[Rfam]
RNA sequence: CAGCCGGUGCGAGUCCGAUCCGGGUAGCUGCCAGGGGCCCAGUAGCAGGCUGGCGGCGUGGUCUGGAAACGGGUCGGGUCGGCGCCCGGCGUCGAAAGCCCUUGCGGGGAAGCCGAUCAGUCAGGCCGUGUGC
Numbered sequence: 001c002a003g004c005c006g007g008u009g010c011g012a013g014u015c016c017g018a019u020c021c022g023g024g025u026a027g028c029u030g031c032c033a034g035g036g037g038c039c040c041a042g043u044a045g046c047a048g049g050c051u052g053g054c055g056g057c058g059u060g061g062u063c064u065g066g067a068a069a070c071g072g073g074u075c076g077g078g079u080c081g082g083c084g085c086c087c088g089g090c091g092u093c094g095a096a097a098g099c100c101c102u103u104g105c106g107g108g109g110a111a112g113c114c115g116a117u118c119a120g121u122c123a124g125g126c127c128g129u130g131u132g133c
Base pairs, nucleotide, nucleotide: 020042022040023039024038049090050089051088052087053086054081055080056079057078059076063072065070099109101107114128115127
Shown here is a 133-nucleotide RNA from Allokutzneria albata, a member of the family "Group II catalytic intron D1-D4-4". The base pairs follow the family's consensus structure. Group II introns are found in rRNA, tRNA and mRNA of organelles in fungi, plants and protists, and also in mRNA in bacteria. Gene Ontology term of the family: Group II intron splicing. The family has 90 seed sequences and 840 matches in Rfam 15.1. For this family Rfam cites "The ins and outs of group II introns" (Bonen and Vogel, Trends Genet, 2001). The match comes from Rfam's covariance-model search (60 bits).